RNA sequence: AAUUUGAUGAUUAAAACCAUUGAUAUCAAUUUUUUUCUUCUGAGGAUGUAUAUGCAGGAUAAAUAGUUAAGGAAUUCUUCGUUUAUGAAAUU
Numbered sequence: 001a002a003u004u005u006g007a008u009g010a011u012u013a014a015a016a017c018c019a020u021u022g023a024u025a026u027c028a029a030u031u032u033u034u035u036u037c038u039u040c041u042g043a044g045g046a047u048g049u050a051u052a053u054g055c056a057g058g059a060u061a062a063a064u065a066g067u068u069a070a071g072g073a074a075u076u077c078u079u080c081g082u083u084u085a086u087g088a089a090a091u092u
Stems, first nucleotide, its partner, number of pairs: 001092004

This 92-nucleotide RNA sequence from Candida maltosa belongs to the Rfam family "Small nucleolar RNA snR57". The base pairs follow the family's consensus structure. NCBI's taxonomy places the organism under Eukaryota, Dikarya, Ascomycota, Pichiomycetes, Candida maltosa. A reference for the family is Lowe and Eddy (1999), "A computational screen for methylation guide snoRNAs in yeast", Science.